[Rfam]
RNA sequence: GCCACACCUAGCCCGCGAUUAGCUACCAAGGGCGAAAAGCAGGAUGCAGCCCCAAGCCUGCCGGUGUGGCCUCUCUAUGUUGUGGG
Numbered sequence: 001g002c003c004a005c006a007c008c009u010a011g012c013c014c015g016c017g018a019u020u021a022g023c024u025a026c027c028a029a030g031g032g033c034g035a036a037a038a039g040c041a042g043g044a045u046g047c048a049g050c051c052c053c054a055a056g057c058c059u060g061c062c063g064g065u066g067u068g069g070c071c072u073c074u075c076u077a078u079g080u081u082g083u084g085g086g
Base pairs, nucleotide, nucleotide: 001070002069003068004067005066006065007064008063011033012032013031014030039061040060041059042058043057
Rfam assigns this 86-nucleotide sequence from Eikenella corrodens to the family "int-alpA RNA". Lineage of the source: Bacteria > Pseudomonadota > Betaproteobacteria > Neisseriaceae > Eikenella corrodens. The match comes from Rfam's covariance-model search (42 bits). The family has 167 seed sequences and 577 matches in Rfam 15.1.